[Rfam]
Shown here is a 577-nucleotide part of an RNA from Candidatus Altarchaeales archaeon WOR_SM1_SCG, a member of the family "Archaeal small subunit ribosomal RNA". Clan: SSU clan. Rfam 15.1 lists 709 matches to the family in 491 species. Rfam links the family to the GO terms ribosome and structural constituent of ribosome. The literature on the family includes a 2002 paper in BMC Bioinformatics by Cannone et al., "The comparative RNA web (CRW) site: an online database of comparative sequence and structure information for ribosomal, intron, and other RNAs".
RNA sequence: UGGCGGGGGAACACCACAAGGGGUGGAGUCUGCGGUUUAAUUGGAUACAACGCCGAGCAACUUACCAGGGGCGACAGCAGAAUGAAGGCCAGGUUGAAGAUCUUGCCGGACGCGCUGAGAGGUAGUGCAUGGCCGCCGUCAGCUCGUACUGUGAAGCGUGCGGUUAAGUCCGUUAACGAGCGAGACCCGUACCUCUAUUUGCAACCUAUGUCUAUCAGAUAUGGGGCACUAUAGAGGGACCGCUGGCGAUGAGUCAGAGGAAGGCGCGGGCUACGGUAGGUCUGUAUGCUCCGAAUCUCCUGGGCUACACGCGGACUACAAUGGCGCAAACAACGGGAUGCAACUCCGAAAGGAGCGAGCUAAUCUCUUAAAUUGCGUCCCAGUUCGGAUUGUGGGCUGUAACUCGCCCACAUGAAGCUGAAAUCCCUAGUAAUCGCUGGUCACUAUCUAGCGGUGAAUAUGUCCCUGUUCCUUGCACACACCGCCCGUCAAACCAAUCGAGUGGGUCAGGGAUGAGGCUCUCUCAUACGGGAGAGUCGAAUUCCAGGUCCGCAAGAGGGGUUAAGUCGUAACAAGG
Number, nucleotide and partner (000 for none) at each position: 001u479002g478003g476004c475005g474006g000007g473008g472009g471010a470011a469012c468013a467014c000015c000016a463017c462018a000019a000020g427021g426022g425023g424024u423025g319026g000027a317028g316029u315030c314031u313032g312033c311034g310035g308036u307037u000038u000039a000040a000041u056042u055043g054044g053045a000046u000047a000048c000049a000050a000051c000052g000053c044054c043055g042056a041057g000058c000059a000060a000061c000062u000063u000064a000065c303066c302067a301068g300069g299070g298071g297072c000073g000074a000075c117076a116077g115078c114079a000080g111081a000082a000083u000084g000085a000086a000087g107088g106089c105090c000091a103092g102093g101094u000095u000096g000097a000098a000099g000100a000101u093102c092103u091104u000105g089106c088107c087108g000109g000110a000111c080112g000113c000114g078115c077116u076117g075118a000119g000120a000121g292122g291123u000124a290125g289126u288127g287128c000129a000130u286131g285132g281133c280134c279135g277136c276137c275138g274139u000140c000141a000142g181143c180144u179145c178146g177147u176148a000149c156150u155151g000152u000153g000154a000155a150156g149157c000158g000159u000160g173161c172162g171163g170164u000165u000166a000167a000168g000169u000170c163171c162172g161173u160174u000175a000176a147177c146178g145179a144180g143181c142182g000183a000184g000185a000186c000187c269188c268189g267190u266191a000192c237193c236194u235195c234196u233197a232198u231199u000200u000201g000202c226203a000204a000205c000206c224207u223208a222209u221210g220211u219212c218213u000214a000215u000216c000217a000218g212219a211220u210221a209222u208223g207224g206225g000226g202227c000228a000229c000230u000231a198232u197233a196234g195235a194236g193237g192238g000239a000240c260241c259242g000243c257244u256245g255246g254247c253248g000249a000250u000251g000252a000253g247254u246255c245256a244257g243258a000259g241260g240261a000262a000263g000264g000265c000266g190267c189268g188269g187270g000271c000272u000273a000274c138275g137276g136277u135278a000279g134280g133281u132282c000283u000284g000285u131286a130287u127288g126289c125290u124291c122292c121293g000294a000295a000296u000297c071298u070299c069300c068301u067302g066303g065304g000305c000306u000307a036308c035309a000310c034311g033312c032313g031314g030315a029316c028317u027318a000319c025320a000321a000322u000323g379324g378325c377326g376327c375328a374329a373330a000331c000332a000333a000334c000335g367336g366337g365338a000339u000340g360341c359342a000343a000344c355345u354346c353347c352348g000349a000350a000351a000352g347353g346354a345355g344356c000357g000358a000359g341360c340361u000362a000363a000364u000365c337366u336367c335368u000369u000370a000371a000372a000373u329374u328375g327376c326377g325378u324379c323380c000381c000382a000383g000384u000385u000386c417387g000388g000389a000390u000391u412392g411393u410394g409395g408396g407397c406398u000399g000400u000401a000402a000403c000404u000405c000406g397407c396408c395409c394410a393411c392412a391413u000414g000415a000416a000417g386418c000419u000420g000421a000422a000423a024424u023425c022426c021427c020428u000429a000430g000431u000432a000433a455434u454435c453436g452437c451438u450439g449440g448441u000442c000443a000444c000445u000446a000447u000448c440449u439450a438451g437452c436453g435454g434455u433456g000457a000458a000459u000460a000461u000462g017463u016464c000465c000466c000467u013468g012469u011470u010471c009472c008473u007474u005475g004476c003477a000478c002479a001480c000481a000482c576483c000484g573485c000486c000487c569488g568489u000490c566491a000492a563493a562494c561495c560496a000497a000498u557499c556500g000501a000502g553503u552504g551505g550506g549507u548508c547509a000510g545511g544512g543513a542514u541515g000516a000517g538518g537519c536520u535521c534522u533523c532524u531525c530526a000527u000528a000529c000530g525531g524532g523533a522534g521535a520536g519537u518538c517539g000540a000541a514542u513543u512544c511545c510546a000547g508548g507549u506550c505551c504552g503553c502554a000555a000556g499557a498558g000559g000560g495561g494562u493563u492564a000565a000566g490567u000568c488569g487570u000571a000572a000573c484574a000575a000576g482577g000